[Rfam]
Notes
Small nucleolar RNA SNORD67: a 107-nucleotide sequence from Chiloscyllium punctatum. About the family: snoRNA HBII-166 belongs to the C/D family of snoRNAs. Pairs were carried over by alignment from the consensus structure. Gene Ontology terms of the family: RNA processing and nucleolus. Rfam classes the family as a C/D-box small nucleolar RNA. Rfam 15.1 lists 781 matches to the family in 618 species. The organism belongs to Chiloscyllium, within Eukaryota.
RNA sequence: UGUGAGAAUGAUGAGUUGCACUCUGAAGGAGUAGUUGUGCAGUGACAUGCUGCUCCUUUCUGAACCCUGAGGACUAAACAUUGUGCACAGGGGCCAUCUGACUCACA
Dot-bracket structure: ...(.((..............((.(((((.(((..((((......)))).))).)))).).)).......................................)).).